[Rfam]
RNA sequence: AGCGACAAGGGCAAACCCUCCGCGAGGAGGGGACGCAAAGCCACGGGACCCCCGCAGGUCAGCCGGGCUGCCGAAC
Dot-bracket structure: ..((......((...((((((....))))))..[))..((((.((((((........))).])))))))..))...
This 76-nucleotide sequence from Cellulomonas hominis belongs to the Rfam family "c-di-GMP-I-GGC riboswitch aptamer". Clan: c-di-GMP_I riboswitch clan.